[Rfam]
This 82-nucleotide RNA sequence from Menidia menidia belongs to the Rfam family "mir-221 microRNA precursor family". It scores 69 bits against the family's covariance model. Taxonomically the source falls in Menidia (Eukaryota, Craniata, Teleostomi, Eurypterygia).
RNA sequence: UACGUUCUGAACCUGGCAUACAGUGUAGGAUCCUGUGUGUCAGUCUACAGCUACAUUGUCUGCUGGGUUUCAGACCUAUACG
Numbered sequence: 001u002a003c004g005u006u007c008u009g010a011a012c013c014u015g016g017c018a019u020a021c022a023g024u025g026u027a028g029g030a031u032c033c034u035g036u037g038u039g040u041c042a043g044u045c046u047a048c049a050g051c052u053a054c055a056u057u058g059u060c061u062g063c064u065g066g067g068u069u070u071c072a073g074a075c076c077u078a079u080a081c082g
Stems, first nucleotide, its partner, number of pairs: 013066006020059009033050004